Nitrogen stress-induced RNA 1: a 59-nucleotide sequence from Leptolyngbya sp. Heron Island J. For this family Rfam cites "Heterocyst-specific transcription of NsiR1, a non-coding RNA encoded in a tandem array of direct repeats in cyanobacteria" (Ionescu et al., J Mol Biol, 2010). The family's RNA type in Rfam is small RNA. Taxonomically the source falls in Leptolyngbya (Bacteria, Cyanobacteriota, Leptolyngbyales, Leptolyngbyaceae). Rfam 15.1 lists 962 matches to the family in 163 species.
Nucleotides: 059
Stems, first nucleotide, its partner, number of pairs: 002013003025051011
Number, partner (000 for none) and nucleotide at each position: 001000u002013g003012g004011u005000a006000g007000a008000u009000g010000c011004a012003c013002c014000c015000u016000g017000a018000u019000g020000u021000u022000u023000a024000a025051c026050u027049c028048c029047u030046g031045a032044g033043u034042c035041u036000u037000u038000c039000u040000g041035a042034g043033g044032c045031u046030u047029g048028g049027g050026a051025g052000u053000u054000u055000u056000u057000u058000u059000u